Background
A member of the RNA family "Bacterial RNase P class A" from Psychroserpens burtonensis, 322 nucleotides long.
RNA sequence: UAAGUAAUUCGCCUUAUCGCAGAGACCUUGCGUCUCUGAGGAAAGUCCGGACACCAUAGUGCAAUCAUAGUGGCUAACAGCCAUCCAUCGCGAGGUGAGGAAAAGUGCAACAGAAAGUAUGUACAGGUCAUGCUGUAGUGAAACCAGGUAAACUCUAUGUGGUGCAAUGUCAUGUAAACUAGUGCUUGAGCGUACACGCGCGAUACUAGAGGGUAGGCAGCUAAAGUUUGCUGGUAACAGUAAACGUAGAUAAAUGAUAAGGAUGCUAACAUGAUUUAUCAUCGUUAGUAUACAGGAUCCGGCUUAUAGAUUUACUUAAACA
Dot-bracket structure: (((((((.((((((((((.(((((((.....)))))))....[[[.[[[[[((((...[[[....(((((((((.....)))))(((((....)))).)((...((((.......................................))..)))))))).))))...((((.......(((((......((((.]]]))))...)))))......))))......((((((((....))))))))..........)))))))...................................]]]]]]]].).)).)))))))....
Numbered sequence: 001u002a003a004g005u006a007a008u009u010c011g012c013c014u015u016a017u018c019g020c021a022g023a024g025a026c027c028u029u030g031c032g033u034c035u036c037u038g039a040g041g042a043a044a045g046u047c048c049g050g051a052c053a054c055c056a057u058a059g060u061g062c063a064a065u066c067a068u069a070g071u072g073g074c075u076a077a078c079a080g081c082c083a084u085c086c087a088u089c090g091c092g093a094g095g096u097g098a099g100g101a102a103a104a105g106u107g108c109a110a111c112a113g114a115a116a117g118u119a120u121g122u123a124c125a126g127g128u129c130a131u132g133c134u135g136u137a138g139u140g141a142a143a144c145c146a147g148g149u150a151a152a153c154u155c156u157a158u159g160u161g162g163u164g165c166a167a168u169g170u171c172a173u174g175u176a177a178a179c180u181a182g183u184g185c186u187u188g189a190g191c192g193u194a195c196a197c198g199c200g201c202g203a204u205a206c207u208a209g210a211g212g213g214u215a216g217g218c219a220g221c222u223a224a225a226g227u228u229u230g231c232u233g234g235u236a237a238c239a240g241u242a243a244a245c246g247u248a249g250a251u252a253a254a255u256g257a258u259a260a261g262g263a264u265g266c267u268a269a270c271a272u273g274a275u276u277u278a279u280c281a282u283c284g285u286u287a288g289u290a291u292a293c294a295g296g297a298u299c300c301g302g303c304u305u306a307u308a309g310a311u312u313u314a315c316u317u318a319a320a321c322a
Stems, first nucleotide, its partner, number of pairs: 001318007009310002011307001012262007020038007043305003047302005052164004059197003066159004070084005085099001086097004100155002105153002107149002168219004179209005190201004226245008

By type it is a ribozyme. The base pairs follow the family's consensus structure, which is taken from published work. It scores 188 bits against the family's covariance model.